[Rfam]
RNA sequence: AGCCUUCUGUAUCUGUGCUGAGAUUUCGUCACACACCAGACCACAAGGGCUGAUGAACUUCCAAGAUAAGCGAAGCG
Numbered sequence: 001a002g003c004c005u006u007c008u009g010u011a012u013c014u015g016u017g018c019u020g021a022g023a024u025u026u027c028g029u030c031a032c033a034c035a036c037c038a039g040a041c042c043a044c045a046a047g048g049g050c051u052g053a054u055g056a057a058c059u060u061c062c063a064a065g066a067u068a069a070g071c072g073a074a075g076c077g
Stems, first nucleotide, its partner, number of pairs: 002076002005073002008070001010068004016063002020061003025057006
Record summary
The family of this 77-nucleotide RNA sequence from Schistosoma haematobium is "mir-3492 microRNA precursor family". The match comes from Rfam's covariance-model search (77 bits). The source organism's lineage runs through Eukaryota, Eumetazoa, Lophotrochozoa, Rhabditophora and Schistosoma. Pairs were carried over by alignment from the consensus structure, which was predicted with RNAalifold. Its family is annotated with miRNA-mediated post-transcriptional gene silencing and RISC complex in the Gene Ontology.